[Rfam]
RNA sequence: UUAUUAGACAACUAAAAGUUAUUGAAUUAUAAUACAUAAGCUAUGUUUUUCAUAGCUAUGACAAUAAACAACAGAUGCAAUAAGUUUAGCGGACUCGGGGGCGGUACCCGACAUCUCCACCAAAAUGUACUUUCAUUUGUAGAAAAUAGAAUGGUUUAUGGGGAUGAAAUAGGAUCGACGUACUCCUAAAAGUCUGUUUUUUGUCCGUUAGUUUUCGUAAAAAGCGUUGAUUUAAAUGCAAAUCAAAACAGUAGCAUGAGUCCUGCUAACUUCAAUAGGACUUCUUUUGCACCUGCAGUUGCAGUUGCUUAAGUAGAGGUUUAGAGGGAUGCCUAGCAACAGAAAUCCCUUAG
Numbered sequence: 001u002u003a004u005u006a007g008a009c010a011a012c013u014a015a016a017a018g019u020u021a022u023u024g025a026a027u028u029a030u031a032a033u034a035c036a037u038a039a040g041c042u043a044u045g046u047u048u049u050u051c052a053u054a055g056c057u058a059u060g061a062c063a064a065u066a067a068a069c070a071a072c073a074g075a076u077g078c079a080a081u082a083a084g085u086u087u088a089g090c091g092g093a094c095u096c097g098g099g100g101g102c103g104g105u106a107c108c109c110g111a112c113a114u115c116u117c118c119a120c121c122a123a124a125a126u127g128u129a130c131u132u133u134c135a136u137u138u139g140u141a142g143a144a145a146a147u148a149g150a151a152u153g154g155u156u157u158a159u160g161g162g163g164a165u166g167a168a169a170u171a172g173g174a175u176c177g178a179c180g181u182a183c184u185c186c187u188a189a190a191a192g193u194c195u196g197u198u199u200u201u202u203g204u205c206c207g208u209u210a211g212u213u214u215u216c217g218u219a220a221a222a223a224g225c226g227u228u229g230a231u232u233u234a235a236a237u238g239c240a241a242a243u244c245a246a247a248a249c250a251g252u253a254g255c256a257u258g259a260g261u262c263c264u265g266c267u268a269a270c271u272u273c274a275a276u277a278g279g280a281c282u283u284c285u286u287u288u289g290c291a292c293c294u295g296c297a298g299u300u301g302c303a304g305u306u307g308c309u310u311a312a313g314u315a316g317a318g319g320u321u322u323a324g325a326g327g328g329a330u331g332c333c334u335a336g337c338a339a340c341a342g343a344a345a346u347c348c349c350u351u352a353g
Stems, first nucleotide, its partner, number of pairs: 040056005060205005070198007087182001089181003095111005112166007206217002317334004324350001326348003
Dot-bracket structure: .......................................(((((.......)))))...(((((.....(((((((..........(.(((...(((((.......)))))(((((((.........................................)))))))............)))).........)))))))..)))))((........))...................................................................................................((((...[.[[[..))))...........]]].]...
RNA: Alphaproteobacteria transfer-messenger RNA